[Rfam]
RNA sequence: AAAAAGGGCUUCUGUCGUGAGUGGCACACGUGGGACAACUCAUUUGCUCUUCAUGUGGAAUCGACAUCAAGAGAUUUCGGAAGCAUAAUUUUUGGGUACUUGGGCAGCUGGUGAUCGUUGGUUAAAAAAAAAAAAAACCAAUGUUGAUUCUACCAAUCCCUA
Numbered sequence: 001a002a003a004a005a006g007g008g009c010u011u012c013u014g015u016c017g018u019g020a021g022u023g024g025c026a027c028a029c030g031u032g033g034g035a036c037a038a039c040u041c042a043u044u045u046g047c048u049c050u051u052c053a054u055g056u057g058g059a060a061u062c063g064a065c066a067u068c069a070a071g072a073g074a075u076u077u078c079g080g081a082a083g084c085a086u087a088a089u090u091u092u093u094g095g096g097u098a099c100u101u102g103g104g105c106a107g108c109u110g111g112u113g114a115u116c117g118u119u120g121g122u123u124a125a126a127a128a129a130a131a132a133a134a135a136a137a138c139c140a141a142u143g144u145u146g147a148u149u150c151u152a153c154c155a156a157u158c159c160c161u162a
Stems, first nucleotide, its partner, number of pairs: 008084005013026005027055002030052001032050003036046003056079007110160002113158003
Dot-bracket structure: .......((((((((((....)))))((.(.(((.(((.....))).))).).))(((((((..........)))))))))))).........................((.(((........................................)))))..